RNA sequence: GUACCCUGAUGGAGCUCUGGCUGUGACUUGUGUUAAAAUUAUUAAAAUCACAUCACAGGCAGAGUUCUAGUUAGGUAA
Numbered sequence: 001g002u003a004c005c006c007u008g009a010u011g012g013a014g015c016u017c018u019g020g021c022u023g024u025g026a027c028u029u030g031u032g033u034u035a036a037a038a039u040u041a042u043u044a045a046a047a048u049c050a051c052a053u054c055a056c057a058g059g060c061a062g063a064g065u066u067c068u069a070g071u072u073a074g075g076u077a078a
Stems, first nucleotide, its partner, number of pairs: 004075002010069008021058006030051003
RNA: mir-11 microRNA precursor family
Organism: Cyphomyrmex costatus